[Rfam]
RNA: U11 spliceosomal RNA
RNA sequence: AAAAAGGGCUUCUGUCAUGAGGGGCACAUGUAGGGCAGCCCCAUCUCUCUUCAUGUGGAAUCGACGUCAAGAGAUUUCAGAAGCAUGAUUUUUUGCUACCCGGGUGGCCGGUGAUCAUUGGUCCCUGCACACGC
Numbered sequence: 001a002a003a004a005a006g007g008g009c010u011u012c013u014g015u016c017a018u019g020a021g022g023g024g025c026a027c028a029u030g031u032a033g034g035g036c037a038g039c040c041c042c043a044u045c046u047c048u049c050u051u052c053a054u055g056u057g058g059a060a061u062c063g064a065c066g067u068c069a070a071g072a073g074a075u076u077u078c079a080g081a082a083g084c085a086u087g088a089u090u091u092u093u094u095g096c097u098a099c100c101c102g103g104g105u106g107g108c109c110g111g112u113g114a115u116c117a118u119u120g121g122u123c124c125c126u127g128c129a130c131a132c133g134c
Stems, first nucleotide, its partner, number of pairs: 008084005013026004027055004032050004038044001056079007102132001104130002107128002110125002113123004